[Rfam]
RNA sequence: AGGUGAUGUCUCCUUACCUUUAUCAACGGGGACACUCGGUUACGCUGUGGGAUUCAUCAUUAAUGGGGCCUUAGACACUAGUUGUCGGGAGCGCGAUGUGAGGACGGGUUAGAUGCCCG
Number, nucleotide and partner (000 for none) at each position: 001a019002g018003g017004u016005g000006a000007u034008g033009u032010c031011u030012c029013c028014u000015u000016a004017c003018c002019u001020u000021u000022a000023u000024c000025a000026a000027c000028g013029g012030g011031g010032a009033c008034a007035c102036u101037c100038g099039g097040u096041u095042a000043c093044g092045c091046u090047g000048u000049g071050g070051g069052a000053u067054u066055c065056a064057u063058c000059a000060u000061u000062a000063a057064u056065g055066g054067g053068g000069c051070c050071u049072u000073a000074g086075a085076c084077a083078c000079u000080a000081g000082u000083u077084g076085u075086c074087g000088g000089g000090a046091g045092c044093g043094c000095g041096a040097u039098g000099u038100g037101a036102g035103g000104a000105c119106g118107g117108g116109u115110u000111a000112g000113a000114u000115g109116c108117c107118c106119g105
RNA: epsC RNA